Shown here is a 157-nucleotide sequence from Candidatus Kuenenia stuttgartensis, a member of the family "c-di-GMP-I riboswitch aptamer". From the family's description: GEMM was predicted in a large-scale screen for bacterial structured RNA regulatory elements. The family's consensus secondary structure is taken from published work. A search with the family's covariance model found it, with a score of 54 bits.
RNA sequence: UAUUGAUAAAGGCAAACCAGUCGUGAGGCUGGGACGCAAAGCAAAGAGUCUUUAACUUAUUCAGCGGCGCACAAAGCGUAAAACAAAAAAUCCGCAGAAGGAUGAAGAGAAAAAUUUCGCGAUACCGCUAAACAGUGAAGAAAGCCCUGCUACCGAA
Numbered sequence: 001u002a003u004u005g006a007u008a009a010a011g012g013c014a015a016a017c018c019a020g021u022c023g024u025g026a027g028g029c030u031g032g033g034a035c036g037c038a039a040a041g042c043a044a045a046g047a048g049u050c051u052u053u054a055a056c057u058u059a060u061u062c063a064g065c066g067g068c069g070c071a072c073a074a075a076g077c078g079u080a081a082a083a084c085a086a087a088a089a090a091u092c093c094g095c096a097g098a099a100g101g102a103u104g105a106a107g108a109g110a111a112a113a114a115u116u117u118c119g120c121g122a123u124a125c126c127g128c129u130a131a132a133c134a135g136u137g138a139a140g141a142a143a144g145c146c147c148u149g150c151u152a153c154c155g156a157a
Stems, first nucleotide, its partner, number of pairs: 012037002017032006040151004046146001049141002055136003